[Rfam]
RNA sequence: GCCGGUCGGGAACCGAGACCCUAGGCAGGGGCGGGGGACCCACUCUCGGGCACCGGACACGGUGUCCUCGGGGUGAAGUCCCACGGUUCGUCCGAACCGUGGGACCGGGUGAUUUCUCCCACCCGAACCCGACAGCUGACUUCGUAGGCGGACAGGAGAGGGAAG
Numbered sequence: 001g002c003c004g005g006u007c008g009g010g011a012a013c014c015g016a017g018a019c020c021c022u023a024g025g026c027a028g029g030g031g032c033g034g035g036g037g038a039c040c041c042a043c044u045c046u047c048g049g050g051c052a053c054c055g056g057a058c059a060c061g062g063u064g065u066c067c068u069c070g071g072g073g074u075g076a077a078g079u080c081c082c083a084c085g086g087u088u089c090g091u092c093c094g095a096a097c098c099g100u101g102g103g104a105c106c107g108g109g110u111g112a113u114u115u116c117u118c119c120c121a122c123c124c125g126a127a128c129c130c131g132a133c134a135g136c137u138g139a140c141u142u143c144g145u146a147g148g149c150g151g152a153c154a155g156g157a158g159a160g161g162g163a164a165g
Stems, first nucleotide, its partner, number of pairs: 001149003007028001031145006041070001071130003079104011107124004

Description:
Shown here is a 165-nucleotide RNA from Isoptericola sediminis, a member of the family "c-di-AMP riboswitch aptamer (ydaO/yuaA leader)". The match comes from Rfam's covariance-model search (66 bits). Lineage of the source: Bacteria > Bacillati > Actinomycetota > Micrococcales > Isoptericola.